Shown here is an 89-nucleotide RNA sequence from Aeromicrobium sp. Root344, a member of the family "ZMP/ZTP riboswitch aptamer (pfl RNA motif)". Lineage of the source: Bacteria > Bacillati > Actinomycetes > Propionibacteriales > Aeromicrobium.
RNA sequence: GCAGUCGGUCGCGACUGGCGUUGAGGUGGGUACCACCGGGGAGCGACUGCAGAAACCGGACAUCGGGACCGUUCGCCUGGGCCCCACGU
Numbered sequence: 001g002c003a004g005u006c007g008g009u010c011g012c013g014a015c016u017g018g019c020g021u022u023g024a025g026g027u028g029g030g031u032a033c034c035a036c037c038g039g040g041g042a043g044c045g046a047c048u049g050c051a052g053a054a055a056c057c058g059g060a061c062a063u064c065g066g067g068a069c070c071g072u073u074c075g076c077c078u079g080g081g082c083c084c085c086a087c088g089u
Stems, first nucleotide, its partner, number of pairs: 006049007015040002017077004026036004066084002069081002